Source information
Purine riboswitch aptamer: a 103-nucleotide RNA from Clostridium fungisolvens. It scores 72 bits against the family's covariance model. Pairs were carried over by alignment from the consensus structure, which is taken from published work. Riboswitches are metabolite binding domains within certain messenger RNAs that serve as precision sensors for their corresponding targets. Gene Ontology term of the family: purine nucleobase biosynthetic process.

[Rfam]
RNA sequence: UUUGCAAAAUUAAAUAGGUUCGAUAUAUCGCCGACAAAUAUGGGUUGGCAGUUUCUACCGGGUGACCGUUAAUUACCCGACUAUCGAGAAGUUGAUUAAGAGU
Numbered sequence: 001u002u003u004g005c006a007a008a009a010u011u012a013a014a015u016a017g018g019u020u021c022g023a024u025a026u027a028u029c030g031c032c033g034a035c036a037a038a039u040a041u042g043g044g045u046u047g048g049c050a051g052u053u054u055c056u057a058c059c060g061g062g063u064g065a066c067c068g069u070u071a072a073u074u075a076c077c078c079g080a081c082u083a084u085c086g087a088g089a090a091g092u093u094g095a096u097u098a099a100g101a102g103u
Base pairs, nucleotide, nucleotide: 019088020087021086022085023084024083025082030049031048032047033046034045035044059079060078061077062076063075064074065073
Dot-bracket structure: ..................(((((((....((((((........)))))).........(((((((.......)))))))..)))))))...............